Overview
The family of this 463-nucleotide RNA sequence from Mesorhizobium phage Cp1R7A-A1 is "Giant, ornate, lake- and Lactobacillales-derived (GOLLD) RNA". It is annotated as a non-coding RNA gene. The base pairs follow the family's consensus structure, which is taken from published work. It scores 194 bits against the family's covariance model.

RNA sequence: AGUAGGCGUGUUGUAUUCCGGGUCUCAAAAGGACUUUGGAGCGACUGGGUCAGCACGUCUCGAUGGGUUGCGAGUAGCACAGUGGUAGUGCAAUGGUUUCAGGAACCAUCGGUCGCCGGUUCAAUCCCGGCCUCAGAUAACAAACGCAAAGACUGACCCGGUUACGUGUGUAAGAUGCCAAACGCCCAGCCCCUCGGGGAACUGGGUCAUCCAAUAGCCGCAAGCUGGAGGAUGUCGGUGAGAGAGUGAACGGAGCCGGACGCACCGGCUAGUGGCUCGCAAGGCCAACGGGCAUGAAGCCGCCGAGUAGCACGUAGCGACAAGCGACACGCCACGCUUCAAAUAAGGCGGCAUUGAGCGAUACGCGGUUAGGGCAACCGGCUGCGUGGAUCAUAAGGGAACCUCGCCCGCAAGGCGGUGGAUAAUCCUUGAAGGCGCUCGCGGAAAGCUGUAGUCUCAGGCU
Numbered sequence: 001a002g003u004a005g006g007c008g009u010g011u012u013g014u015a016u017u018c019c020g021g022g023u024c025u026c027a028a029a030a031g032g033a034c035u036u037u038g039g040a041g042c043g044a045c046u047g048g049g050u051c052a053g054c055a056c057g058u059c060u061c062g063a064u065g066g067g068u069u070g071c072g073a074g075u076a077g078c079a080c081a082g083u084g085g086u087a088g089u090g091c092a093a094u095g096g097u098u099u100c101a102g103g104a105a106c107c108a109u110c111g112g113u114c115g116c117c118g119g120u121u122c123a124a125u126c127c128c129g130g131c132c133u134c135a136g137a138u139a140a141c142a143a144a145c146g147c148a149a150a151g152a153c154u155g156a157c158c159c160g161g162u163u164a165c166g167u168g169u170g171u172a173a174g175a176u177g178c179c180a181a182a183c184g185c186c187c188a189g190c191c192c193c194u195c196g197g198g199g200a201a202c203u204g205g206g207u208c209a210u211c212c213a214a215u216a217g218c219c220g221c222a223a224g225c226u227g228g229a230g231g232a233u234g235u236c237g238g239u240g241a242g243a244g245a246g247u248g249a250a251c252g253g254a255g256c257c258g259g260a261c262g263c264a265c266c267g268g269c270u271a272g273u274g275g276c277u278c279g280c281a282a283g284g285c286c287a288a289c290g291g292g293c294a295u296g297a298a299g300c301c302g303c304c305g306a307g308u309a310g311c312a313c314g315u316a317g318c319g320a321c322a323a324g325c326g327a328c329a330c331g332c333c334a335c336g337c338u339u340c341a342a343a344u345a346a347g348g349c350g351g352c353a354u355u356g357a358g359c360g361a362u363a364c365g366c367g368g369u370u371a372g373g374g375c376a377a378c379c380g381g382c383u384g385c386g387u388g389g390a391u392c393a394u395a396a397g398g399g400a401a402c403c404u405c406g407c408c409c410g411c412a413a414g415g416c417g418g419u420g421g422a423u424a425a426u427c428c429u430u431g432a433a434g435g436c437g438c439u440c441g442c443g444g445a446a447a448g449c450u451g452u453a454g455u456c457u458c459a460g461g462c463u
Stems, first nucleotide, its partner, number of pairs: 002061001004060006010045005017040004021035005047159007146221002161318009175354005184207006190199003208234005215227004237304004251290002255269004273287005331349003336344001356440005362388008389456003394431006448462003